[Rfam]
RNA sequence: GAGAGAUUGUGCCCCUGCGUUGAAAACGCAUAUUUGAAUGGCACAAUCGACUUGCCGCCGAGUGUAAACGAGGGGGCGACACCCUUA
Numbered sequence: 001g002a003g004a005g006a007u008u009g010u011g012c013c014c015c016u017g018c019g020u021u022g023a024a025a026a027c028g029c030a031u032a033u034u035u036g037a038a039u040g041g042c043a044c045a046a047u048c049g050a051c052u053u054g055c056c057g058c059c060g061a062g063u064g065u066a067a068a069c070g071a072g073g074g075g076g077c078g079a080c081a082c083c084c085u086u087a
Stems, first nucleotide, its partner, number of pairs: 008045006016030005054077003058073002062069002

The family of this 87-nucleotide RNA sequence is "GA-cis RNA". By type it is a small RNA.